The family of this 506-nucleotide part of an RNA from Cohaesibacter gelatinilyticus is "Bacterial large subunit ribosomal RNA". The organism belongs to Cohaesibacter, within Bacteria. Pairs were carried over by alignment from the consensus structure, which is taken from published work.

RNA sequence: GUCUUAAGGGCGUUUGGUGGAUGCCUUGGCGACAAGAGGCGAUGAAAGACGUGGUACGCUGCGAUAAGCCAUGGGGAGCUGCGAACAGGCUUUGAUCCGUGGAUUUCUGAAUGGGGAAACCCACCCAUUUUGGGUAUCCUGAUCUGAAUAUAUAGGGUCAGGAGGCGAACCCGGGGAACUGAAACAUCUAAGUACCCGGAGGAAAGGACAUCAACAGAGACUCCGUUAGUAGUGGCGAGCGAACGCGGACCAGGCCAGUGCUUAAUAUUUUCUAAUCUGAAUAGUCUGGAAAGGCUAACCAUAGAAGGUGACAGUCCUGUAGGGGUGUUGAAGAUAUUGAGACUUGAGUAGGGCGGGACACGUGAAAUCCUGUCUGAACGUGGGGGGACCACCCUCCAAGCCUAAGUACUCCUUGUCGACCGAUAGUGAACCAGUACCGUGAGGGAAAGGUGAAAAGCACCCCGACGAGGGGGGUGAAAGAGAUCCUGAAACCGAGCGCCUACAAG
Numbered sequence: 001g002u003c004u005u006a007a008g009g010g011c012g013u014u015u016g017g018u019g020g021a022u023g024c025c026u027u028g029g030c031g032a033c034a035a036g037a038g039g040c041g042a043u044g045a046a047a048g049a050c051g052u053g054g055u056a057c058g059c060u061g062c063g064a065u066a067a068g069c070c071a072u073g074g075g076g077a078g079c080u081g082c083g084a085a086c087a088g089g090c091u092u093u094g095a096u097c098c099g100u101g102g103a104u105u106u107c108u109g110a111a112u113g114g115g116g117a118a119a120c121c122c123a124c125c126c127a128u129u130u131u132g133g134g135u136a137u138c139c140u141g142a143u144c145u146g147a148a149u150a151u152a153u154a155g156g157g158u159c160a161g162g163a164g165g166c167g168a169a170c171c172c173g174g175g176g177a178a179c180u181g182a183a184a185c186a187u188c189u190a191a192g193u194a195c196c197c198g199g200a201g202g203a204a205a206g207g208a209c210a211u212c213a214a215c216a217g218a219g220a221c222u223c224c225g226u227u228a229g230u231a232g233u234g235g236c237g238a239g240c241g242a243a244c245g246c247g248g249a250c251c252a253g254g255c256c257a258g259u260g261c262u263u264a265a266u267a268u269u270u271u272c273u274a275a276u277c278u279g280a281a282u283a284g285u286c287u288g289g290a291a292a293g294g295c296u297a298a299c300c301a302u303a304g305a306a307g308g309u310g311a312c313a314g315u316c317c318u319g320u321a322g323g324g325g326u327g328u329u330g331a332a333g334a335u336a337u338u339g340a341g342a343c344u345u346g347a348g349u350a351g352g353g354c355g356g357g358a359c360a361c362g363u364g365a366a367a368u369c370c371u372g373u374c375u376g377a378a379c380g381u382g383g384g385g386g387g388a389c390c391a392c393c394c395u396c397c398a399a400g401c402c403u404a405a406g407u408a409c410u411c412c413u414u415g416u417c418g419a420c421c422g423a424u425a426g427u428g429a430a431c432c433a434g435u436a437c438c439g440u441g442a443g444g445g446a447a448a449g450g451u452g453a454a455a456a457g458c459a460c461c462c463c464g465a466c467g468a469g470g471g472g473g474g475u476g477a478a479a480g481a482g483a484u485c486c487u488g489a490a491a492c493c494g495a496g497c498g499c500c501u502a503c504a505a506g
Stems, first nucleotide, its partner, number of pairs: 008501010023486001024450002028421002030418007037410002039166002047108003050063003069102007078090003113122003123135004137163009170201001171199005181188002211218002221406001222249005232240002252403004262340011274328001276324003282297005300304001306318003351375008382397005437444002460472004